[Rfam]
A member of the RNA family "Small nucleolar RNA Z157/R69/R10" from Chenopodium quinoa, 85 nucleotides long. On this family, see Chen et al., Nucleic Acids Res 2003: "The high diversity of snoRNAs in plants: identification and comparative study of 120 snoRNA genes from Oryza sativa". By type it is a C/D-box small nucleolar RNA.
RNA sequence: AUGGGUUACAGUGAUGAAGCUAAGUGUGGACUAGAGUUUCUGACCUAUUGGUUGAAGACAAACCCUUGGCUGUCUGAGUACUCGU
Numbered sequence: 001a002u003g004g005g006u007u008a009c010a011g012u013g014a015u016g017a018a019g020c021u022a023a024g025u026g027u028g029g030a031c032u033a034g035a036g037u038u039u040c041u042g043a044c045c046u047a048u049u050g051g052u053u054g055a056a057g058a059c060a061a062a063c064c065c066u067u068g069g070c071u072g073u074c075u076g077a078g079u080a081c082u083c084g085u
Stems, first nucleotide, its partner, number of pairs: 001085005007080003037057004044050001
The base pairs follow the family's consensus structure, which was predicted with PFOLD. It scores 58 bits against the family's covariance model.